[Rfam]
This 386-nucleotide RNA sequence from Microbacterium sp. BK668 belongs to the Rfam family "Bacterial RNase P class A". Rfam links the family to the GO terms tRNA processing, ribonuclease P activity and dimeric ribonuclease P complex. Lineage of the source: Bacteria > Actinomycetota > Actinomycetes > Microbacteriaceae > Microbacterium. Rfam classes the family as a ribozyme.

RNA sequence: UGGGUCGGCCGGACGGUCGCGUCGCGGGCGGUUCGCCGCCUGCGCCGAGGAACGUCCGGGCUCCGCAGGGCAGGGCGGUGGGUAACACCCACCCGGAGCGAUCCGCGAGACAGUGCCACAGAGAGCAGACCGCUCUCCGGUCCCGAGCUUGUCGAAGGGCCGGAGAGUAAGGGUGAAAGGGUGGUGUAAGAGACCACCGGGGCCGUGGUGACACGGCCCGCACGGUAAACCUCGCCCGGAGCAAGGCCAGACAGGGGAUGACGACGCGGCCCGCCGAGUCCCCGGGUAGGCCGCUGGAGCGGCACGGCAACGUGUCGCCGAGAGAGAUGACCGUCCACGGGGCUUCGGCCCCCGGACAGAACCCGGCGUACAGGCCGGCCCAUUCG
Numbered sequence: 001u002g003g004g005u006c007g008g009c010c011g012g013a014c015g016g017u018c019g020c021g022u023c024g025c026g027g028g029c030g031g032u033u034c035g036c037c038g039c040c041u042g043c044g045c046c047g048a049g050g051a052a053c054g055u056c057c058g059g060g061c062u063c064c065g066c067a068g069g070g071c072a073g074g075g076c077g078g079u080g081g082g083u084a085a086c087a088c089c090c091a092c093c094c095g096g097a098g099c100g101a102u103c104c105g106c107g108a109g110a111c112a113g114u115g116c117c118a119c120a121g122a123g124a125g126c127a128g129a130c131c132g133c134u135c136u137c138c139g140g141u142c143c144c145g146a147g148c149u150u151g152u153c154g155a156a157g158g159g160c161c162g163g164a165g166a167g168u169a170a171g172g173g174u175g176a177a178a179g180g181g182u183g184g185u186g187u188a189a190g191a192g193a194c195c196a197c198c199g200g201g202g203c204c205g206u207g208g209u210g211a212c213a214c215g216g217c218c219c220g221c222a223c224g225g226u227a228a229a230c231c232u233c234g235c236c237c238g239g240a241g242c243a244a245g246g247c248c249a250g251a252c253a254g255g256g257g258a259u260g261a262c263g264a265c266g267c268g269g270c271c272c273g274c275c276g277a278g279u280c281c282c283c284g285g286g287u288a289g290g291c292c293g294c295u296g297g298a299g300c301g302g303c304a305c306g307g308c309a310a311c312g313u314g315u316c317g318c319c320g321a322g323a324g325a326g327a328u329g330a331c332c333g334u335c336c337a338c339g340g341g342g343c344u345u346c347g348g349c350c351c352c353c354g355g356a357c358a359g360a361a362c363c364c365g366g367c368g369u370a371c372a373g374g375c376c377g378g379c380c381c382a383u384u385c386g
Stems, first nucleotide, its partner, number of pairs: 001382010011371001012335007020047002023044008052369003056366005061241004068271002071268001073237005078092005093107001094105004108232002113230002115226003130172002132168012180198006199221001200219008245292004254283006262276002265273002299318008